This 109-nucleotide RNA from Dysosmobacter segnis belongs to the Rfam family "Purine riboswitch aptamer". From the family's description: Riboswitches are metabolite binding domains within certain messenger RNAs that serve as precision sensors for their corresponding targets. The family's consensus secondary structure is taken from published work. NCBI's taxonomy places the organism under Bacteria, Bacillati, Bacillota, Clostridia, Dysosmobacter.

RNA sequence: ACUAUAAAUGGAAAUAUGGCUCAUAUAAUUCCGCUGAUGGGAUCGUCUCAGGCGCGGAAGUUUCUAUGAGAUCGCCUAAGAUCUUGCUAUGAGCGUCCGCUUAUGCGGG
Numbered sequence: 001a002c003u004a005u006a007a008a009u010g011g012a013a014a015u016a017u018g019g020c021u022c023a024u025a026u027a028a029u030u031c032c033g034c035u036g037a038u039g040g041g042a043u044c045g046u047c048u049c050a051g052g053c054g055c056g057g058a059a060g061u062u063u064c065u066a067u068g069a070g071a072u073c074g075c076c077u078a079a080g081a082u083c084u085u086g087c088u089a090u091g092a093g094c095g096u097c098c099g100c101u102u103a104u105g106c107g108g109g
Stems, first nucleotide, its partner, number of pairs: 019094007029059006068085006